[Rfam]
RNA sequence: ACCUUAUCCAGAGAGGUGGAGGGACUGGCCCUAUGAAACCCGGCAACCGGCACGAAGUGCGCGGUGCUAAAUCCUGCAGCUGCGAAUUGGCUGAAAGAUGAGUU
Numbered sequence: 001a002c003c004u005u006a007u008c009c010a011g012a013g014a015g016g017u018g019g020a021g022g023g024a025c026u027g028g029c030c031c032u033a034u035g036a037a038a039c040c041c042g043g044c045a046a047c048c049g050g051c052a053c054g055a056a057g058u059g060c061g062c063g064g065u066g067c068u069a070a071a072u073c074c075u076g077c078a079g080c081u082g083c084g085a086a087u088u089g090g091c092u093g094a095a096a097g098a099u100g101a102g103u104u
Base pairs, nucleotide, nucleotide: 001104003102004101005100006099007098008097013041015040016039017038021031022030023029025076027074028073042068043067044066045065047064048063050060051059052058053057072096077093078092079091080090081089082088
RNA: SAM riboswitch aptamer (S box leader)